[Rfam]
RNA sequence: UGAUUAACACUCCAUGCUAAUCAUGAAUGUGUUCAAAUAUAUAUAUUUGAAUACGAUGAUUAAAAUUGUUGUUUACGCUUUCUGAAA
Number, nucleotide and partner (000 for none) at each position: 001u000002g000003a000004u000005u000006a000007a000008c000009a000010c000011u000012c000013c000014a000015u000016g000017c000018u000019a000020a000021u000022c000023a000024u000025g000026a000027a000028u055029g054030u053031g052032u051033u050034c049035a048036a047037a000038u000039a000040u000041a000042u000043a000044u000045a000046u000047u036048u035049g034050a033051a032052u031053a030054c029055g028056a000057u000058g000059a000060u000061u000062a000063a000064a000065a000066u000067u000068g000069u000070u000071g000072u000073u000074u000075a000076c000077g000078c000079u000080u000081u000082c000083u000084g000085a000086a000087a000
RNA: Small nucleolar RNA snR53
Organism: Saccharomyces pastorianus